[Rfam]
RNA sequence: AGUGGUGAUAGAGGUGCGAAAUUCAAUAGUACAGGUUUGGAGAAGUAUGAGCUUCAACGAAAAGCCUGGAAAGGGGAAAUCGCCGAAGUGGGACAGGCCUCAUAGCUUGUUUUGCUGGUCCGGUAUUGAAUAAAAACCGGAUUGUCAAGAAUAUUCUUGGAGAGCUAUCUCACUG
Dot-bracket structure: ......(((((....((((..(((.......(((((((.......................)))))))......)))..))))...((((((((((((......))))))))))))((((((((.((.....)).)))))))).((((((....))))))....)))))......
A member of the RNA family "Lysine riboswitch aptamer" from Peribacillus saganii, 175 nucleotides long. Gene Ontology term of the family: lysine biosynthetic process.